RNA sequence: UUUGAGGGUGAUGAGUUGCACGUAACAGUCGGGGUGUGUCUGAUGCAGUGGCAUCGACCCCCCUGACCUGACACAACCUGAGGACACAACUUGUGCACAGGGGCCAUCUGACUCAAC
Number, nucleotide and partner (000 for none) at each position: 001u000002u000003u000004g000005a000006g114007g113008g112009u000010g000011a000012u000013g000014a000015g000016u000017u000018g000019c000020a000021c000022g000023u000024a000025a000026c070027a069028g068029u066030c065031g064032g063033g000034g061035u000036g059037u000038g000039u000040c000041u000042g055043a054044u053045g052046c051047a000048g000049u000050g000051g046052c045053a044054u043055c042056g000057a000058c000059c036060c000061c034062c000063c032064u031065g030066a029067c000068c028069u027070g026071a000072c000073a000074c000075a000076a000077c000078c000079u000080g000081a000082g000083g000084a000085c000086a000087c000088a000089a000090c000091u000092u000093g000094u000095g000096c000097a000098c000099a000100g000101g000102g000103g000104c000105c000106a000107u000108c000109u000110g000111a000112c008113u007114c006115a000116a000117c000